RNA sequence: CUGCAAAUAUUCUCAUUGUUCUGAUUUUUGUGAUAGCCAGGACAGGCCAAACAUUUGCUAUAUUAAUGCCAUGCUUGUAUCCCCAGACCUAGUUCUUUCCCUGGGUCUAGUUUUAUAAAUGCUGAUGAUAAAC
Numbered sequence: 001c002u003g004c005a006a007a008u009a010u011u012c013u014c015a016u017u018g019u020u021c022u023g024a025u026u027u028u029u030g031u032g033a034u035a036g037c038c039a040g041g042a043c044a045g046g047c048c049a050a051a052c053a054u055u056u057g058c059u060a061u062a063u064u065a066a067u068g069c070c071a072u073g074c075u076u077g078u079a080u081c082c083c084c085a086g087a088c089c090u091a092g093u094u095c096u097u098u099c100c101c102u103g104g105g106u107c108u109a110g111u112u113u114u115a116u117a118a119a120u121g122c123u124g125a126u127g128a129u130a131a132a133c
Stems, first nucleotide, its partner, number of pairs: 003058003016045008025036002068126001070124002073122002083110001085108008
RNA: Small nucleolar RNA SNORA72
Organism: Carlito syrichta